Shown here is a 92-nucleotide sequence from Arachis hypogaea, a member of the family "MIR828 microRNA precursor family".
[Rfam]
RNA sequence: UGAACAUUUCUUGCUCAAAUGAGUAUUCCAACCAUAUAGUUGCAGUUCGCAUGUAUGCACGUUGAGAUGCUCAUUUGAGUAAGCAAUGUUAA
Numbered sequence: 001u002g003a004a005c006a007u008u009u010c011u012u013g014c015u016c017a018a019a020u021g022a023g024u025a026u027u028c029c030a031a032c033c034a035u036a037u038a039g040u041u042g043c044a045g046u047u048c049g050c051a052u053g054u055a056u057g058c059a060c061g062u063u064g065a066g067a068u069g070c071u072c073a074u075u076u077g078a079g080u081a082a083g084c085a086a087u088g089u090u091a092a
Stems, first nucleotide, its partner, number of pairs: 004089005010083018029064004
Overview:
Taxonomically the source falls in Arachis (Eukaryota, Streptophytina, Tracheophyta, Magnoliopsida).